[Rfam]
mir-399 microRNA precursor family: a 119-nucleotide sequence from Brassica napus. The match comes from Rfam's covariance-model search (83 bits). Its family is annotated with RISC complex and miRNA-mediated post-transcriptional gene silencing in the Gene Ontology. mir-399 was identified in both Arabidopsis thaliana and Oryza sativa computationally and was later experimentally verified. mir-399 is thought to target mRNAs coding for a phosphatase transporter.

RNA sequence: AAAUGCAUUACAGGGCAAGAUCUCUAUUGGCAGGAAACCAUUACUUGACCUUUGCAUCUCUUUAUGCAUUGUUUUGUAGUGAGUUCCCUGCCAAAGGAGAUUUGCCCGGUAAUUCUUCU
Numbered sequence: 001a002a003a004u005g006c007a008u009u010a011c012a013g014g015g016c017a018a019g020a021u022c023u024c025u026a027u028u029g030g031c032a033g034g035a036a037a038c039c040a041u042u043a044c045u046u047g048a049c050c051u052u053u054g055c056a057u058c059u060c061u062u063u064a065u066g067c068a069u070u071g072u073u074u075u076g077u078a079g080u081g082a083g084u085u086c087c088c089u090g091c092c093a094a095a096g097g098a099g100a101u102u103u104g105c106c107c108g109g110u111a112a113u114u115c116u117u118c119u
Stems, first nucleotide, its partner, number of pairs: 005115001007113003011109001013107007022099004028093007036085001